[Rfam]
RNA sequence: CCCGGUCCUCGGUAGUGGCUCCCGGACCCGCCGUCCGGGGGCUUCGAUCGAAGACCGGU
Numbered sequence: 001c002c003c004g005g006u007c008c009u010c011g012g013u014a015g016u017g018g019c020u021c022c023c024g025g026a027c028c029c030g031c032c033g034u035c036c037g038g039g040g041g042c043u044u045c046g047a048u049c050g051a052a053g054a055c056c057g058g059u
Stems, first nucleotide, its partner, number of pairs: 002058006009051005017043011
RNA: Actino-pnp RNA
Organism: Actinomycetospora sp. TBRC 11914